Rfam assigns this 93-nucleotide RNA from Egicoccus halophilus to the family "c-di-GMP-I riboswitch aptamer". The match comes from Rfam's covariance-model search (37 bits). The base pairs follow the family's consensus structure, which is taken from published work. Lineage of the source: Bacteria > Bacillati > Actinomycetota > Egicoccales > Egicoccus.
[Rfam]
RNA sequence: GCGUGAGAAGGGCGACCCCGUCGUAAGGCGGGCAAGCAACGUCACGGGACCUCACCCCGGCCGCGUGCCGGGACGGUCAGCCGGACUACCUCG
Numbered sequence: 001g002c003g004u005g006a007g008a009a010g011g012g013c014g015a016c017c018c019c020g021u022c023g024u025a026a027g028g029c030g031g032g033c034a035a036g037c038a039a040c041g042u043c044a045c046g047g048g049a050c051c052u053c054a055c056c057c058c059g060g061c062c063g064c065g066u067g068c069c070g071g072g073a074c075g076g077u078c079a080g081c082c083g084g085a086c087u088a089c090c091u092c093g
Base pairs, nucleotide, nucleotide: 012037013036017032018031019030020029021028022027041086042085043084045083046082047081048078049077050076055072056071057070